[Rfam]
RNA sequence: CUUCACCGACCCCAGCCACAGCGGCGUCUCCCGCUCUUGGCCGUAGGUCGCCAGCAGUGCCUGGGCCUC
Numbered sequence: 001c002u003u004c005a006c007c008g009a010c011c012c013c014a015g016c017c018a019c020a021g022c023g024g025c026g027u028c029u030c031c032c033g034c035u036c037u038u039g040g041c042c043g044u045a046g047g048u049c050g051c052c053a054g055c056a057g058u059g060c061c062u063g064g065g066c067c068u069c
Stems, first nucleotide, its partner, number of pairs: 015025003028065003032059002037054003041050001043048001
RNA: ASpks TB sRNA
Organism: Actinokineospora terrae